SAM riboswitch aptamer (S box leader): a 94-nucleotide RNA from Bacillus mesophilus. Lineage of the source: Bacteria > Bacillota > Bacilli > Bacillaceae > Bacillus. Pairs were carried over by alignment from the consensus structure, which is taken from published work.

RNA sequence: UUCUUAUCAAGAGAGGUGGAGGGACUGGCCCAAUGAAACCCGGCAACCGUUACAGGUGCUAAUUCCAGCAGAAGAAAGAUCUGAGAGAUAAGAA
Numbered sequence: 001u002u003c004u005u006a007u008c009a010a011g012a013g014a015g016g017u018g019g020a021g022g023g024a025c026u027g028g029c030c031c032a033a034u035g036a037a038a039c040c041c042g043g044c045a046a047c048c049g050u051u052a053c054a055g056g057u058g059c060u061a062a063u064u065c066c067a068g069c070a071g072a073a074g075a076a077a078g079a080u081c082u083g084a085g086a087g088a089u090a091a092g093a094a
Stems, first nucleotide, its partner, number of pairs: 001094008013041001015040003021031003025068004042060004047056002049053001064086001069083004